[Rfam]
RNA sequence: GGGAUGUGAUGAGUGGUCAAUGCUUGCACUAAAUAUGCGAGAGGGGUGUCUGCCCCAAGCCUGGUUACGACAAUUGGGCACUCCCAUUAUAAUUGAUCUGAUCUC
Number, nucleotide and partner (000 for none) at each position: 001g105002g104003g103004a102005u000006g000007u000008g000009a000010u000011g000012a000013g000014u096015g000016g094017u000018c000019a000020a000021u000022g000023c041024u040025u039026g038027c037028a000029c000030u000031a000032a000033a000034u000035a000036u000037g027038c026039g025040a024041g023042a000043g084044g083045g082046g081047u080048g079049u078050c077051u000052g000053c000054c000055c000056c000057a000058a000059g000060c000061c000062u076063g075064g074065u073066u000067a000068c000069g000070a000071c000072a000073a065074u064075u063076g062077g050078g049079c048080a047081c046082u045083c044084c043085c000086a000087u000088u000089a000090u000091a000092a000093u000094u016095g000096a014097u000098c000099u000100g000101a000102u004103c003104u002105c001